Description: Rfam assigns this 179-nucleotide sequence from Rhodobacteraceae bacterium SB2 to the family "Ruegeria cis52 sRNA". A search with the family's covariance model found it, with a score of 96 bits. Rfam links the family to the GO term regulation of gene expression. The family's RNA type in Rfam is small RNA.
RNA sequence: UUCUCAGCGCGUGUUUCAAAACAACAUUCGGGAAUGAAACGCCUUUUAAACGUGCGGUUCGGAUAUAUUGGGCGGUCAUCACUUCGGUCAUUGAGGCCCUUGUCAUCCGCGCAAUGUAGCCCAUUCCGUAGAUCGCAAUCGUUAAAACCGGCAAUAAAAAAUUCUCAAGAUUAGGGUUU
Dot-bracket structure: ...(.(..(((..(((...((......(.((........(((...(.(.(.(.((.((((((.....)))))).)......(((((.....)))))).).).).)...)))........)).)))..).))..)))..).)...(((((.(..(.((....)).)......).)).)))